Rfam assigns this 75-nucleotide RNA sequence from Pseudanabaena sp. FACHB-2040 to the family "Cyano-1 RNA". By type it is a small RNA. Lineage of the source: Bacteria > Cyanobacteriota > Cyanophyceae > Pseudanabaenales > Pseudanabaena. It scores 46 bits against the family's covariance model. Pairs were carried over by alignment from the consensus structure, which is taken from published work.
RNA sequence: UCAAGUGUGAGGAGUUAAUCGAAUCGAAAAAGCCCCUGAGUCGAAACACGGACAGACGCCAGGGGCUUUUUUGUG
Numbered sequence: 001u002c003a004a005g006u007g008u009g010a011g012g013a014g015u016u017a018a019u020c021g022a023a024u025c026g027a028a029a030a031a032g033c034c035c036c037u038g039a040g041u042c043g044a045a046a047c048a049c050g051g052a053c054a055g056a057c058g059c060c061a062g063g064g065g066c067u068u069u070u071u072u073g074u075g
Base pairs, nucleotide, nucleotide: 028070029069030068031067032066035063036062037061038060040057041056042055